[Rfam]
RNA sequence: GAAUGAAGGUAGCAUGGUUAUAUGUACAGAAAUUGAAUUUAAUAGAGUCGACAUGUCUGCUACCUCUGAUUUCUCUUAUGAUUUGGUGGCCUGGUUUAGACUCAAAUUC
Numbered sequence: 001g002a003a004u005g006a007a008g009g010u011a012g013c014a015u016g017g018u019u020a021u022a023u024g025u026a027c028a029g030a031a032a033u034u035g036a037a038u039u040u041a042a043u044a045g046a047g048u049c050g051a052c053a054u055g056u057c058u059g060c061u062a063c064c065u066c067u068g069a070u071u072u073c074u075c076u077u078a079u080g081a082u083u084u085g086g087u088g089g090c091c092u093g094g095u096u097u098a099g100a101c102u103c104a105a106a107u108u109c
Stems, first nucleotide, its partner, number of pairs: 012025004045092001047090003055082003

Annotation:
A member of the RNA family "Small nucleolar RNA snoR100" from Solanum lycopersicum, 109 nucleotides long. By type it is an H/ACA-box small nucleolar RNA. The source organism's lineage runs through Eukaryota, Spermatophyta, eudicotyledons, Solaneae and Solanum subgen. Lycopersicon. The family has 9 seed sequences and 1,851 matches in Rfam 15.1.